Shown here is a 359-nucleotide RNA sequence from Elsinoe australis, a member of the family "Nuclear RNase P".
RNA sequence: GUCCUCGUCAACGCUGCGUUUCUUUGCUCCCAAACAGACAAGAGCCUCGCUCCUCGUCAUUCCAAGCAAAUGAGAAAUUCGGAGUAAUCUUCAAACUUCCCUGCUACCCACGUUCCUGUACUGUACUGCAGGCAUCGUGUGCACUGGCAACUGCGGGUGACCGCCCGGCGUGAAGACGCCCGCAACCGGCAUCAGAAAAUCAGGACAUGGUCUCUGACUGUGAUCCUAUGGGAGCCGGUGCGAAGAUUGUAUUUGCUGCGGCAAGAUACUUCAGUGCAAUACGCGGCGUACCAGAGACUUUUUUCACUUUGGUGAAAAGGUCAAUGGUUCCAUUCGAUUCCGAUUACUCUGGCGAGGAC
Numbered sequence: 001g002u003c004c005u006c007g008u009c010a011a012c013g014c015u016g017c018g019u020u021u022c023u024u025u026g027c028u029c030c031c032a033a034a035c036a037g038a039c040a041a042g043a044g045c046c047u048c049g050c051u052c053c054u055c056g057u058c059a060u061u062c063c064a065a066g067c068a069a070a071u072g073a074g075a076a077a078u079u080c081g082g083a084g085u086a087a088u089c090u091u092c093a094a095a096c097u098u099c100c101c102u103g104c105u106a107c108c109c110a111c112g113u114u115c116c117u118g119u120a121c122u123g124u125a126c127u128g129c130a131g132g133c134a135u136c137g138u139g140u141g142c143a144c145u146g147g148c149a150a151c152u153g154c155g156g157g158u159g160a161c162c163g164c165c166c167g168g169c170g171u172g173a174a175g176a177c178g179c180c181c182g183c184a185a186c187c188g189g190c191a192u193c194a195g196a197a198a199a200u201c202a203g204g205a206c207a208u209g210g211u212c213u214c215u216g217a218c219u220g221u222g223a224u225c226c227u228a229u230g231g232g233a234g235c236c237g238g239u240g241c242g243a244a245g246a247u248u249g250u251a252u253u254u255g256c257u258g259c260g261g262c263a264a265g266a267u268a269c270u271u272c273a274g275u276g277c278a279a280u281a282c283g284c285g286g287c288g289u290a291c292c293a294g295a296g297a298c299u300u301u302u303u304u305c306a307c308u309u310u311g312g313u314g315a316a317a318a319g320g321u322c323a324a325u326g327g328u329u330c331c332a333u334u335c336g337a338u339u340c341c342g343a344u345u346a347c348u349c350u351g352g353c354g355a356g357g358a359c
Base pairs, nucleotide, nucleotide: 001359002358003357004356008352009351010350013287014286015285016284017283018282019281023070024069025068026067037058038057039056041054042053080342081341082340083339084338089245090244091243092242153164154163155162156161167180168179169178170177171176185239186238187237188236189235190234202227203226204225288330290328291327292326293325
Ribonuclease P (RNase P) is a ubiquitous endoribonuclease, found in archaea, bacteria and eukarya as well as chloroplasts and mitochondria. Clan: RNaseP clan. Pairs were carried over by alignment from the consensus structure, which is taken from published work. Gene Ontology terms of the family: tRNA processing, ribonuclease P complex and ribonuclease P activity. It scores 34 bits against the family's covariance model.